RNA sequence: AAGAAUUACGGGCAAACCUAGCGAAAGCCAGGGACGCAAAGCUAUGGGUCUAAAAACAGUUGUUGAUGACUGCCAGGCUGCAAUC
Numbered sequence: 001a002a003g004a005a006u007u008a009c010g011g012g013c014a015a016a017c018c019u020a021g022c023g024a025a026a027g028c029c030a031g032g033g034a035c036g037c038a039a040a041g042c043u044a045u046g047g048g049u050c051u052a053a054a055a056a057c058a059g060u061u062g063u064u065g066a067u068g069a070c071u072g073c074c075a076g077g078c079u080g081c082a083a084u085c
Stems, first nucleotide, its partner, number of pairs: 012037002017032003021028002040079004045075003048070003055064003
Source information
This 85-nucleotide RNA sequence from Dendrosporobacter quercicolus belongs to the Rfam family "c-di-GMP-I riboswitch aptamer". On this family, see Sudarsan et al., Science 2008: "Riboswitches in Eubacteria Sense the Second Messenger Cyclic Di-GMP". Taxonomically the source falls in Dendrosporobacter (Bacteria, Bacillati, Bacillota, Selenomonadales).